[Rfam]
This 83-nucleotide RNA from Digitaria exilis belongs to the Rfam family "Small nucleolar RNA Z221/R21b". The match comes from Rfam's covariance-model search (80 bits). It is annotated as a C/D-box small nucleolar RNA. Lineage of the source: Eukaryota > Streptophyta > Euphyllophyta > Anthephorinae > Digitaria.
RNA sequence: GGGCAGUGAUGAUACAAUAGUCAUGCACCACUCUUAGUUUCUGUGCUGACAAACAACUUACUACCCAUUAUUUUUCUGAGCCC
Numbered sequence: 001g002g003g004c005a006g007u008g009a010u011g012a013u014a015c016a017a018u019a020g021u022c023a024u025g026c027a028c029c030a031c032u033c034u035u036a037g038u039u040u041c042u043g044u045g046c047u048g049a050c051a052a053a054c055a056a057c058u059u060a061c062u063a064c065c066c067a068u069u070a071u072u073u074u075u076c077u078g079a080g081c082c083c
Stems, first nucleotide, its partner, number of pairs: 001083004